[Rfam]
This 85-nucleotide RNA from Miscanthus lutarioriparius belongs to the Rfam family "Small nucleolar RNA Z199". Gene Ontology terms of the family: nucleolus and RNA processing. About the family: snoZ199 is a C/D box small nucleolar RNA, which acts as a methylation guide RNA for sites on 18S and 25S rRNA. Rice snoZ199 is reported to be homologous to Arabidopsis snoR13. The match comes from Rfam's covariance-model search (57 bits). Lineage of the source: Eukaryota > Magnoliopsida > Petrosaviidae > commelinids > Miscanthus. The family's consensus secondary structure was predicted with PFOLD.

RNA sequence: GAUCAAGCAAUGAGCAAUUAACUGCUCCAACGUCAUGAUUGGAGUUAUUCUCCUAUGAUUCAUAAGUUUUAAGUCUCUGGUGGUC
Numbered sequence: 001g002a003u004c005a006a007g008c009a010a011u012g013a014g015c016a017a018u019u020a021a022c023u024g025c026u027c028c029a030a031c032g033u034c035a036u037g038a039u040u041g042g043a044g045u046u047a048u049u050c051u052c053c054u055a056u057g058a059u060u061c062a063u064a065a066g067u068u069u070u071a072a073g074u075c076u077c078u079g080g081u082g083g084u085c
Stems, first nucleotide, its partner, number of pairs: 001084001003083003041053004